The family of this 116-nucleotide RNA from Bacillus sp. FJAT-27986 is "epsC RNA". The source organism's lineage runs through Bacteria, Bacillota, Bacilli, Caryophanales and Bacillus. It is annotated as a cis-regulatory element. It scores 107 bits against the family's covariance model. The base pairs follow the family's consensus structure, which is taken from published work.

[Rfam]
RNA sequence: AGGUGAUGCCUCCUAACCUUUAUCAAGGGAGACACUCGGCCGUGCUGUGGGAGGUAGAAAAGCUUCCUUAGAUGCAAGUCAUCAGUAGGAUGGUGUGAGGGUGGGUUAGAUGCCCA
Numbered sequence: 001a002g003g004u005g006a007u008g009c010c011u012c013c014u015a016a017c018c019u020u021u022a023u024c025a026a027g028g029g030a031g032a033c034a035c036u037c038g039g040c041c042g043u044g045c046u047g048u049g050g051g052a053g054g055u056a057g058a059a060a061a062g063c064u065u066c067c068u069u070a071g072a073u074g075c076a077a078g079u080c081a082u083c084a085g086u087a088g089g090a091u092g093g094u095g096u097g098a099g100g101g102u103g104g105g106u107u108a109g110a111u112g113c114c115c116a
Base pairs, nucleotide, nucleotide: 001019002018003017004016007034008033010031011030012029013028035099036098037097038096039094040093041092042091043090045088046087049068050067051066052065053064054063055062071083072082073081074080102116103115104114105113106112